[Rfam]
Notes: A member of the RNA family "Bacterial RNase P class A" from Acetomicrobium mobile, 335 nucleotides long. Rfam classes the family as a ribozyme. NCBI's taxonomy places the organism under Bacteria, Thermotogati, Synergistales, Acetomicrobiaceae, Acetomicrobium mobile. Gene Ontology terms of the family: dimeric ribonuclease P complex, tRNA processing and ribonuclease P activity.
RNA sequence: UGAGCAUCUCAGAUGACCGCGUCCCCCAGUGGGAUGAGGAAAGUCCGGGCUCCACAGGGCAAAGCGCUGGAUAACGUCCAGCAGGCGCGAGCCUCGGGAGAGUGCCACAGAAACAUACCGCUCUCUUUUGAGAGUAAGGGUGAAAAGGUGGGGUAAGAGCCCACCGGUCAUUGGGCGACCAAUGAGCCAGGCAAACCCCGCUUGGAGCAAGAUCAAAUAGGGAGGAAUGAGGUGGCCCGCUGACCUCCGGGUUGAUCGCUGGAGAAGGGGCGCAAGUCCCUUCCAAGAGAAAUGGUCAUCUUUACACAGAACCCGGCUUAUGAGAUGCUCGAGAU
Numbered sequence: 001u002g003a004g005c006a007u008c009u010c011a012g013a014u015g016a017c018c019g020c021g022u023c024c025c026c027c028a029g030u031g032g033g034a035u036g037a038g039g040a041a042a043g044u045c046c047g048g049g050c051u052c053c054a055c056a057g058g059g060c061a062a063a064g065c066g067c068u069g070g071a072u073a074a075c076g077u078c079c080a081g082c083a084g085g086c087g088c089g090a091g092c093c094u095c096g097g098g099a100g101a102g103u104g105c106c107a108c109a110g111a112a113a114c115a116u117a118c119c120g121c122u123c124u125c126u127u128u129u130g131a132g133a134g135u136a137a138g139g140g141u142g143a144a145a146a147g148g149u150g151g152g153g154u155a156a157g158a159g160c161c162c163a164c165c166g167g168u169c170a171u172u173g174g175g176c177g178a179c180c181a182a183u184g185a186g187c188c189a190g191g192c193a194a195a196c197c198c199c200g201c202u203u204g205g206a207g208c209a210a211g212a213u214c215a216a217a218u219a220g221g222g223a224g225g226a227a228u229g230a231g232g233u234g235g236c237c238c239g240c241u242g243a244c245c246u247c248c249g250g251g252u253u254g255a256u257c258g259c260u261g262g263a264g265a266a267g268g269g270g271c272g273c274a275a276g277u278c279c280c281u282u283c284c285a286a287g288a289g290a291a292a293u294g295g296u297c298a299u300c301u302u303u304a305c306a307c308a309g310a311a312c313c314c315g316g317c318u319u320a321u322g323a324g325a326u327g328c329u330c331g332a333g334a335u
Base pairs, nucleotide, nucleotide: 001331002330003329004328005327006326007325008324009323010322011321012300013299014298015297016296017295018294020036021035022034023033024032025031041319042318043317045316046315047314048313049312050207051206052205053204057238058237059236060235062203063202064201065200066199067081068080069079070078071077082096083094084093085092086091097198098197102196103195104192105191106190118139119138120135121134122133123132124131125130147165148164149163150162151161152160166187168185169184170183171182172181173180174179211257212256213255214254221248222247223246224245225244231241232240233239264283265282266281267280268279269278270277271276